[Rfam]
RNA sequence: UUGCCUUUACGAAAGUCAUGGAGUAAAGCUUGCUGUGAGAAGUCAGCAGAUGCCAUAGUAGUGCAAUAGUCGAUAACGUUGCACGAAGGGC
Numbered sequence: 001u002u003g004c005c006u007u008u009a010c011g012a013a014a015g016u017c018a019u020g021g022a023g024u025a026a027a028g029c030u031u032g033c034u035g036u037g038a039g040a041a042g043u044c045a046g047c048a049g050a051u052g053c054c055a056u057a058g059u060a061g062u063g064c065a066a067u068a069g070u071c072g073a074u075a076a077c078g079u080u081g082c083a084c085g086a087a088g089g090g091c
Base pairs, nucleotide, nucleotide: 001026002025004021005020007018009016010015042051043050044049052091053090054089061084062083063082064081065080066079
The family of this 91-nucleotide sequence from Segatella copri is "Group II catalytic intron D1-D4-1".
Rfam describes the family as follows. Group II introns are found in rRNA, tRNA and mRNA of organelles in fungi, plants and protists, and also in mRNA in bacteria.
The family has 237 seed sequences and 2,508 matches in Rfam 15.1.
The source organism's lineage runs through Bacteria, Pseudomonadati, Bacteroidota, Bacteroidales and Segatella copri.
The literature on the family includes a 2003 paper in Crit Rev Biochem Mol Biol by Lehmann and Schmidt, "Group II introns: structure and catalytic versatility of large natural ribozymes".